About this RNA: A member of the RNA family "Burkholderia sRNA Bp1_Cand871_SIPHT" from Burkholderia singularis, 229 nucleotides long. The base pairs follow the family's consensus structure, which was predicted with CMfinder. It scores 211 bits against the family's covariance model.

[Rfam]
RNA sequence: UCGCCCACAAUGCCUCUCACGGUUUCAACACGGAUGCGGUCUCCGGUGCGGCGUGUGAGCGGACAUCAAGCACGAAAGAGCCCGUCGGUUUUUUACCGAAUCCCUUCUUAGGGGCAUCCUUGUUGAAGUCGUCGUCGGUGCCGGAGCAUCGAUGCCCUUCACCUUUGGUCUCCUCGCGCUAACCCCGUAGCGUGUGGUUUUUAGCGGGCUCAUGAGCCCGCUUUUUUUC
Number, nucleotide and partner (000 for none) at each position: 001u000002c000003g000004c000005c168006c167007a166008c000009a000010a000011u000012g000013c000014c000015u000016c000017u000018c000019a132020c131021g130022g129023u128024u127025u126026c125027a124028a123029c122030a121031c000032g119033g118034a117035u116036g115037c114038g082039g081040u080041c000042u077043c000044c000045g000046g073047u072048g071049c070050g000051g000052c000053g066054u065055g064056u063057g000058a000059g000060c000061g000062g000063a056064c055065a054066u053067c000068a000069a000070g049071c048072a047073c046074g000075a000076a000077a042078g000079a000080g040081c039082c038083c000084g000085u099086c098087g097088g096089u095090u000091u000092u000093u000094u000095a089096c088097c087098g086099a085100a000101u000102c113103c112104c111105u110106u000107c000108u000109u000110a105111g104112g103113g102114g037115c036116a035117u034118c033119c032120u000121u030122g029123u028124u027125g026126a025127a024128g023129u022130c021131g020132u019133c000134g000135u152136c151137g150138g149139u148140g000141c000142c000143g000144g000145a000146g000147c000148a139149u138150c137151g136152a135153u000154g000155c000156c000157c000158u000159u000160c000161a000162c000163c000164u000165u000166u007167g006168g005169u000170c000171u000172c197173c196174u000175c194176g193177c192178g191179c190180u189181a188182a000183c000184c000185c000186c000187g000188u181189a180190g179191c178192g177193u176194g175195u000196g173197g172198u000199u000200u000201u000202u000203a222204g221205c220206g219207g218208g217209c216210u215211c000212a000213u000214g000215a210216g209217c208218c207219c206220g205221c204222u203223u000224u000225u000226u000227u000228u000229c000
Rfam classes the family as a small RNA.